[Rfam]
RNA sequence: CAAGCCAGAAGAGGCGCGUCGCCCAGGUAGUGUGUUUGAGGAACCGAAUCCUUUGAUGACACAUAAGGGGGUGCGACGCCGAGGUAAUCUCAGUCGGUACUGACGAUUAUCGACCGCAGGGGCUGAAUCCUCUGGGUUGUCACCCGACGCGCCCGCCAGUCCGGCGCGCCGCAAGGUGGGGCGCUUCUGGGUAA
Numbered sequence: 001c002a003a004g005c006c007a008g009a010a011g012a013g014g015c016g017c018g019u020c021g022c023c024c025a026g027g028u029a030g031u032g033u034g035u036u037u038g039a040g041g042a043a044c045c046g047a048a049u050c051c052u053u054u055g056a057u058g059a060c061a062c063a064u065a066a067g068g069g070g071g072u073g074c075g076a077c078g079c080c081g082a083g084g085u086a087a088u089c090u091c092a093g094u095c096g097g098u099a100c101u102g103a104c105g106a107u108u109a110u111c112g113a114c115c116g117c118a119g120g121g122g123c124u125g126a127a128u129c130c131u132c133u134g135g136g137u138u139g140u141c142a143c144c145c146g147a148c149g150c151g152c153c154c155g156c157c158a159g160u161c162c163g164g165c166g167c168g169c170c171g172c173a174a175g176g177u178g179g180g181g182c183g184c185u186u187c188u189g190g191g192u193a194a
Stems, first nucleotide, its partner, number of pairs: 006189006016079007024071001030064007083111007090103004112138004117134006140179005